[Rfam]
RNA sequence: AAUGAUACUUCCCUAACCUGACUGAAAGGGCCCGCGACGUAGGAGCAGCGGGGGAAUGCCUGCCGUGUUUGAAAAAGAAUACGGCCGGAUUUC
Numbered sequence: 001a002a003u004g005a006u007a008c009u010u011c012c013c014u015a016a017c018c019u020g021a022c023u024g025a026a027a028g029g030g031c032c033c034g035c036g037a038c039g040u041a042g043g044a045g046c047a048g049c050g051g052g053g054g055a056a057u058g059c060c061u062g063c064c065g066u067g068u069u070u071g072a073a074a075a076a077g078a079a080u081a082c083g084g085c086c087g088g089a090u091u092u093c
Stems, first nucleotide, its partner, number of pairs: 011030004031052005053093004059088001062085001065082005